[Rfam]
RNA sequence: CAUUAUUCUCAGGGCGGGGUGCAAUUCCCCACCGGCGGUAUGCCAGUUUUUUUGGUGAGCCCGCGAGCGCUUAAAACCCUAACGUUUUAAGGUCAGCAGAUCUGGUGAGAAGCCAGAGCCGACGGUAAUAGUCCGGAUGGGAGAGGAUGAUA
Numbered sequence: 001c002a003u004u005a006u007u008c009u010c011a012g013g014g015c016g017g018g019g020u021g022c023a024a025u026u027c028c029c030c031a032c033c034g035g036c037g038g039u040a041u042g043c044c045a046g047u048u049u050u051u052u053u054g055g056u057g058a059g060c061c062c063g064c065g066a067g068c069g070c071u072u073a074a075a076a077c078c079c080u081a082a083c084g085u086u087u088u089a090a091g092g093u094c095a096g097c098a099g100a101u102c103u104g105g106u107g108a109g110a111a112g113c114c115a116g117a118g119c120c121g122a123c124g125g126u127a128a129u130a131g132u133c134c135g136g137a138u139g140g141g142a143g144a145g146g147a148u149g150a151u152a
Stems, first nucleotide, its partner, number of pairs: 003150008017029003031132002033121002035064004059119002067097002101117005123135003

The family of this 152-nucleotide RNA from Vibrio nigripulchritudo is "FMN riboswitch aptamer (RFN element)". The base pairs follow the family's consensus structure, which is taken from published work.